[Rfam]
RNA sequence: UUUGUUAGCUUUUAAGAGUCGGCUCAAAGUGACCGGCUAGUGGUCCUAAUCCGCUUUGGCGAGGGUUAGGUAACCGCGACACUAUCAAAUUGCGGGAAAGUCUUGUUAGGUCUCUGCUACCGCGGCUCAUCGAAAGAUAGAGUGCAGCACCAGGUUAAUGGCCUCGGGUAUGGUAAGAACGCAGAGAAUAGAGAUAAUCCGCAGCCAAGUCCUAAGUAGCGCCUUUCCAGUCGCUAUAGGGAUGCUGUUCAUCGACUAAAUGGUAGUGGGCUCGCAGCUUAGUCUCGGGCUUAAGAUAUAGUCAGGCCCUAUCGAGAGAUAGCC
Numbered sequence: 001u002u003u004g005u006u007a008g009c010u011u012u013u014a015a016g017a018g019u020c021g022g023c024u025c026a027a028a029g030u031g032a033c034c035g036g037c038u039a040g041u042g043g044u045c046c047u048a049a050u051c052c053g054c055u056u057u058g059g060c061g062a063g064g065g066u067u068a069g070g071u072a073a074c075c076g077c078g079a080c081a082c083u084a085u086c087a088a089a090u091u092g093c094g095g096g097a098a099a100g101u102c103u104u105g106u107u108a109g110g111u112c113u114c115u116g117c118u119a120c121c122g123c124g125g126c127u128c129a130u131c132g133a134a135a136g137a138u139a140g141a142g143u144g145c146a147g148c149a150c151c152a153g154g155u156u157a158a159u160g161g162c163c164u165c166g167g168g169u170a171u172g173g174u175a176a177g178a179a180c181g182c183a184g185a186g187a188a189u190a191g192a193g194a195u196a197a198u199c200c201g202c203a204g205c206c207a208a209g210u211c212c213u214a215a216g217u218a219g220c221g222c223c224u225u226u227c228c229a230g231u232c233g234c235u236a237u238a239g240g241g242a243u244g245c246u247g248u249u250c251a252u253c254g255a256c257u258a259a260a261u262g263g264u265a266g267u268g269g270g271c272u273c274g275c276a277g278c279u280u281a282g283u284c285u286c287g288g289g290c291u292u293a294a295g296a297u298a299u300a301g302u303c304a305g306g307c308c309c310u311a312u313c314g315a316g317a318g319a320u321a322g323c324c
Stems, first nucleotide, its partner, number of pairs: 080268005086262002091203006101194004204248002209243004217236005252304001254303005270290005277283001309322005
Annotation: This 324-nucleotide RNA from Microbotryum saponariae belongs to the Rfam family "Group I catalytic intron". On this family, see Cech, Annu Rev Biochem 1990: "Self-splicing of group I introns".